[Rfam]
The family of this 240-nucleotide sequence from Fusarium poae is "Group I catalytic intron". A search with the family's covariance model found it, with a score of 92 bits. Group I catalytic introns are large self-splicing ribozymes. They catalyse their own excision from mRNA, tRNA and rRNA precursors in a wide range of organisms. The core secondary structure consists of 9 paired regions (P1-P9). These fold to essentially two domains - the P4-P6 domain (formed from the stacking of P5, P4, P6 and P6a helices) and the P3-P9 domain (formed from the P8, P3, P7 and P9 helices). The secondary structure mark-up for this family represents only this conserved core. Group I catalytic introns often have long ORFs inserted in loop regions. The window size for this search is chosen to minimise search time and catch the small examples. A larger window size will find more matches. Its family is annotated with Group I intron splicing in the Gene Ontology. The family has 12 seed sequences and 5,602 matches in Rfam 15.1.

RNA sequence: AGAAGCAUUUAAUUCUGUAGAACAUAUAUAAGCAUAAUGUGUUCUUUAAAUUGGGCUAAUUGCUGGAAAACCUUCAUUAAGACAAUCAGCAGGAAAAUUACUAGAUGUUAUUAUAUAUCCAGUAUUAUCUUCAGAGACUACACGCCCGACAUCUGAUUUAGGAGAGCUUGCACCAUGAUUUAAAGCGCAACCUCCUAACCAUAGAUGAUGAUAUAGUCCAAUCUCUACUGGAAAGUAGAG
Numbered sequence: 001a002g003a004a005g006c007a008u009u010u011a012a013u014u015c016u017g018u019a020g021a022a023c024a025u026a027u028a029u030a031a032g033c034a035u036a037a038u039g040u041g042u043u044c045u046u047u048a049a050a051u052u053g054g055g056c057u058a059a060u061u062g063c064u065g066g067a068a069a070a071c072c073u074u075c076a077u078u079a080a081g082a083c084a085a086u087c088a089g090c091a092g093g094a095a096a097a098u099u100a101c102u103a104g105a106u107g108u109u110a111u112u113a114u115a116u117a118u119c120c121a122g123u124a125u126u127a128u129c130u131u132c133a134g135a136g137a138c139u140a141c142a143c144g145c146c147c148g149a150c151a152u153c154u155g156a157u158u159u160a161g162g163a164g165a166g167c168u169u170g171c172a173c174c175a176u177g178a179u180u181u182a183a184a185g186c187g188c189a190a191c192c193u194c195c196u197a198a199c200c201a202u203a204g205a206u207g208a209u210g211a212u213a214u215a216g217u218c219c220a221a222u223c224u225c226u227a228c229u230g231g232a233a234a235g236u237a238g239a240g
Stems, first nucleotide, its partner, number of pairs: 005025001008022003012018002051149004056144001061091006072081003092130002097125002104119004134219001136218005152205004225238005